Description:
Rfam assigns this 162-nucleotide RNA sequence from Prolemur simus to the family "U1 spliceosomal RNA". From the family's description: U1 is a small nuclear RNA (snRNA) component of the spliceosome (involved in pre-mRNA splicing). Taxonomically the source falls in Prolemur (Eukaryota, Vertebrata, Theria, Eutheria). A search with the family's covariance model found it, with a score of 133 bits.
Nucleotides: 162
Base pairs, nucleotide, nucleotide: 012122013121014120015119016048017047018046019045020044021043023042024041025040026039027038049090050089051088052087056083057082058081060079061078062077063076064075093116094115095113096112097111099109100108141162142161146157148155
Number, partner (000 for none) and nucleotide at each position: 001000a002000u003000a004000c005000u006000c007000a008000c009000c010000u011000g012122g013121c014120a015119g016048g017047g018046g019045a020044g021043a022000c023042g024041c025040c026039a027038u028000g029000a030000u031000c032000a033000c034000a035000a036000a037000g038027g039026u040025g041024g042023u043021u044020u045019u046018c047017c048016c049090a050089g051088g052087g053000c054000c055000a056083a057082g058081c059000u060079u061078a062077u063076c064075c065000a066000u067000u068000g069000c070000a071000c072000u073000c074000u075064g076063g077062a078061u079060g080000u081058g082057c083056u084000g085000a086000c087052c088051c089050c090049u091000g092000c093116g094115a095113u096112u097111u098000u099109c100108c101000c102000c103000a104000a105000u106000u107000u108100g109099g110000g111097a112096a113095a114000c115094u116093c117000a118000a119015c120014u121013g122012c123000a124000u125000a126000a127000u128000u129000u130000g131000u132000g133000g134000u135000a136000g137000u138000g139000g140000a141162g142161g143000a144000c145000u146157g147000u148155g149000u150000u151000c152000a153000a154000g155148c156000u157146c158000u159000u160000c161142c162141c